[Rfam]
RNA sequence: GGCUUUCUUCGGGGCGGAGCUCGACCGCCAGUCCAAGCGCUGAUCGAGUUCAUCGACGCGCACCGCCAACGGUUCGGGGUCGAGCCGAUCUGCAGGGUGCUCAGCGAGCACGGCUGUGGGAUCGCCCCG
Numbered sequence: 001g002g003c004u005u006u007c008u009u010c011g012g013g014g015c016g017g018a019g020c021u022c023g024a025c026c027g028c029c030a031g032u033c034c035a036a037g038c039g040c041u042g043a044u045c046g047a048g049u050u051c052a053u054c055g056a057c058g059c060g061c062a063c064c065g066c067c068a069a070c071g072g073u074u075c076g077g078g079g080u081c082g083a084g085c086c087g088a089u090c091u092g093c094a095g096g097g098u099g100c101u102c103a104g105c106g107a108g109c110a111c112g113g114c115u116g117u118g119g120g121a122u123c124g125c126c127c128c129g
Stems, first nucleotide, its partner, number of pairs: 013029005075129005086124002089121002091118005
Dot-bracket structure: ............(((((.......))))).............................................(((((......((.(((((((..................))))).)).)))))))

The family of this 129-nucleotide RNA from Actinomarinicola tropica is "ALIL pseudoknot". The family's consensus secondary structure is taken from published work. Taxonomically the source falls in Actinomarinicola (Bacteria, Bacillati, Actinomycetota, Acidimicrobiales). By type it is a cis-regulatory element.